This 147-nucleotide sequence from Roseobacter insulae belongs to the Rfam family "FMN riboswitch aptamer (RFN element)".
The organism belongs to Roseobacter, within Bacteria.
About the family: The RFN element is a highly conserved domain that is found frequently in the 5'-untranslated regions of prokaryotic mRNAs that encode for flavin mononucleotide (FMN) biosynthesis and transport proteins.
The base pairs follow the family's consensus structure, which is taken from published work.

RNA sequence: GGCCAUUCUCAGGGCGGGGUGUAAUUCCCCACCGGCGGUAUGCAGGCGCUUGAUCUGCGAGCCCGCGAGCGGCCUCAUGCGAGGUGUCCAGCAGAUCUGGUGAAAUGCCAGAGCCGACGGUCAUAGUCCGGAUGAAAGAGAAUGCGG
Numbered sequence: 001g002g003c004c005a006u007u008c009u010c011a012g013g014g015c016g017g018g019g020u021g022u023a024a025u026u027c028c029c030c031a032c033c034g035g036c037g038g039u040a041u042g043c044a045g046g047c048g049c050u051u052g053a054u055c056u057g058c059g060a061g062c063c064c065g066c067g068a069g070c071g072g073c074c075u076c077a078u079g080c081g082a083g084g085u086g087u088c089c090a091g092c093a094g095a096u097c098u099g100g101u102g103a104a105a106u107g108c109c110a111g112a113g114c115c116g117a118c119g120g121u122c123a124u125a126g127u128c129c130g131g132a133u134g135a136a137a138g139a140g141a142a143u144g145c146g147g
Base pairs, nucleotide, nucleotide: 004144005143006142007141008140009139010138017029018028019027031127032126033116034115035066036065037064038063061114062113069092070091096112097111098110099109100108118130119129120128
Dot-bracket structure: ...(((((((......(((.......))).[[((((((......................[[))))..((....................))...(((((.......)))))]])).(((.....]]))).......)))))))...